[Rfam]
Nucleotides: 341
Base pairs, nucleotide, nucleotide: 012325013324014323015322016321017320018319019318021316026312027311028310029309030308031307032306033305036299037298038297039296040295041057042056043055044054045053048067050065051064052063107130108129109128110127111126113125114124115123133170134169135168136167137166138165139162140161141160142159143157144156145155146154148185149184150183151182152181153180190217191216192215194213197210198209203234205232206231208229236272237271239268240267241266242265247260248259249258251291252290253289254288255285256284257283
Number, partner (000 for none) and nucleotide at each position: 001000u002000a003000c004000g005000g006000a007000u008000u009000c010000g011000a012325c013324a014323g015322g016321g017320a018319u019318a020000g021316u022000u023000u024000g025000a026312g027311c028310u029309u030308a031307g032306g033305u034000u035000g036299c037298g038297a039296g040295u041057c042056g043055a044054g045053g046000g047000g048067g049000u050065c051064g052063u053045c054044c055043u056042c057041g058000u059000a060000a061000a062000a063052a064051c065050g066000c067048c068000a069000a070000a071000g072000c073000c074000a075000a076000u077000a078000a079000u080000a081000a082000c083000u084000g085000g086000c087000a088000a089000a090000u091000c092000u093000a094000a095000c096000a097000a098000u099000a100000a101000c102000u103000u104000c105000g106000c107130u108129u109128u110127a111126g112000c113125u114124g115123c116000c117000u118000a119000a120000u121000a122000a123115g124114c125113a126111c127110u128109a129108a130107g131000c132000g133170g134169a135168u136167c137166c138165u139162c140161c141160c142159u143157c144156c145155a146154u147000c148185g149184c150183c151182c152181a153180u154146g155145u156144g157143g158000u159142a160141g161140g162139g163000u164000c165138a166137g167136g168135g169134u170133c171000u172000c173000a174000a175000c176000u177000g178000u179000a180153g181152u182151g183150g184149g185148c186000u187000a188000c189000g190217c191216c192215g193000g194213u195000u196000g197210u198209c199000c200000u201000c202000c203234g204000c205232c206231u207000g208229g209198g210197g211000a212000c213194g214000a215192u216191g217190g218000a219000a220000g221000a222000g223000a224000c225000c226000a227000a228000u229208c230000a231206g232205g233000c234203u235000a236272g237271c238000a239268c240267u241266u242265c243000a244000g245000a246000c247260g248259c249258c250000u251291g252290u253289c254288g255285a256284u257283a258249g259248g260247c261000a262000g263000a264000a265242g266241a267240a268239g269000c270000u271237g272236c273000g274000a275000a276000a277000c278000a279000a280000u281000a282000a283257u284256a285255u286000a287000u288254c289253g290252a291251c292000u293000a294000c295040a296039c297038u298037c299036g300000u301000a302000g303000a304000c305033g306032c307031u308030u309029a310028a311027g312026u313000g314000g315000c316021a317000a318019u319018g320017u321016u322015u323014c324013u325012g326000g327000a328000c329000g330000u331000g332000g333000g334000u335000u336000c337000g338000a339000u340000u341000a